[Rfam]
Background
The family of this 86-nucleotide sequence from Domibacillus mangrovi is "c-di-GMP-I riboswitch aptamer". The match comes from Rfam's covariance-model search (78 bits). GEMM was predicted in a large-scale screen for bacterial structured RNA regulatory elements. Lineage of the source: Bacteria > Bacillati > Bacillota > Bacilli > Domibacillus. Pairs were carried over by alignment from the consensus structure, which is taken from published work.
RNA sequence: UGUACGAACGGGCAAAAUCAUUGAAAAAUGAUGACGCAAAACUAGAGGGACUAAAGUCUUGAAGACUAUGUCAGCCAGUUGCCGAA
Numbered sequence: 001u002g003u004a005c006g007a008a009c010g011g012g013c014a015a016a017a018u019c020a021u022u023g024a025a026a027a028a029u030g031a032u033g034a035c036g037c038a039a040a041a042c043u044a045g046a047g048g049g050a051c052u053a054a055a056g057u058c059u060u061g062a063a064g065a066c067u068a069u070g071u072c073a074g075c076c077a078g079u080u081g082c083c084g085a086a
Stems, first nucleotide, its partner, number of pairs: 012037002017032006040080004047076002049072003056066004